[Rfam]
RNA: MicL sRNA
RNA sequence: UAUGGCCGGUGCGGGAGUCCGCGCCGCGAACCUGCCGCUGUUUCUGCAGGCGGGGGUGAAAGAGGUCCAUAGCUCGGCUGGCCACUGGUUGCCGUCGGAAAUGCGCUUUCGUCAUCCGGGCGUUUCGAUGUCAGCCGAUCCCGAUGCCGAUGAAUACAGACGCUACGCCGUGAAUGGCGCAGCGGUGGCGGAGAUGAAAAGGAUUAUCUCCGCCAGGAGAAGUUAAACGGUUUUUUGCUGCACAUCAUGUCGCCCAAUAUGAUGAUUGCCCGUACCAGGCCCCUGCCCAUUAAACAGGGGCCUUUUUUU
Numbered sequence: 001u002a003u004g005g006c007c008g009g010u011g012c013g014g015g016a017g018u019c020c021g022c023g024c025c026g027c028g029a030a031c032c033u034g035c036c037g038c039u040g041u042u043u044c045u046g047c048a049g050g051c052g053g054g055g056g057u058g059a060a061a062g063a064g065g066u067c068c069a070u071a072g073c074u075c076g077g078c079u080g081g082c083c084a085c086u087g088g089u090u091g092c093c094g095u096c097g098g099a100a101a102u103g104c105g106c107u108u109u110c111g112u113c114a115u116c117c118g119g120g121c122g123u124u125u126c127g128a129u130g131u132c133a134g135c136c137g138a139u140c141c142c143g144a145u146g147c148c149g150a151u152g153a154a155u156a157c158a159g160a161c162g163c164u165a166c167g168c169c170g171u172g173a174a175u176g177g178c179g180c181a182g183c184g185g186u187g188g189c190g191g192a193g194a195u196g197a198a199a200a201g202g203a204u205u206a207u208c209u210c211c212g213c214c215a216g217g218a219g220a221a222g223u224u225a226a227a228c229g230g231u232u233u234u235u236u237g238c239u240g241c242a243c244a245u246c247a248u249g250u251c252g253c254c255c256a257a258u259a260u261g262a263u264g265a266u267u268g269c270c271c272g273u274a275c276c277a278g279g280c281c282c283c284u285g286c287c288c289a290u291u292a293a294a295c296a297g298g299g300g301c302c303u304u305u306u307u308u309u
Stems, first nucleotide, its partner, number of pairs: 003277003009271001011269004016042003021038003024034001026032001046082002049079003054075004062067001083130002086127002088124001090122001092120002095118001101115002103112003131138002142162002148159001166264002169261004177255001179253002182250003185246001188243001193241001196238001199235007207227001209218003278302008